[Rfam]
RNA sequence: CUAGGGGAUACAGCAGCAAUUCAUGUUUUGAAGUUCUUUACAAUGGUUCAAAACGUGAGGCGCUGCUAUACCCCCUCGAG
Number, nucleotide and partner (000 for none) at each position: 001c078002u000003a076004g075005g074006g073007g072008a000009u070010a069011c000012a000013g066014c065015a064016g063017c062018a000019a000020u059021u058022c057023a056024u055025g054026u053027u052028u051029u050030g049031a048032a047033g000034u045035u000036c000037u000038u000039u000040a000041c000042a000043a000044u000045g034046g000047u032048u031049c030050a029051a028052a027053a026054c025055g024056u023057g022058a021059g020060g000061c000062g017063c016064u015065g014066c013067u000068a000069u010070a009071c000072c007073c006074c005075c004076u003077c000078g001079a000080g000
Annotation: The record is an 80-nucleotide sequence from Eptesicus fuscus, which matches "mir-322 microRNA precursor family" in Rfam. The base pairs follow the family's consensus structure, which was predicted with RNAalifold. NCBI's taxonomy places the organism under Eukaryota, Deuterostomia, Theria, Yangochiroptera, Eptesicus. A reference for the family is Kasashima et al. (2004), "Altered expression profiles of microRNAs during TPA-induced differentiation of HL-60 cells", Biochem Biophys Res Commun.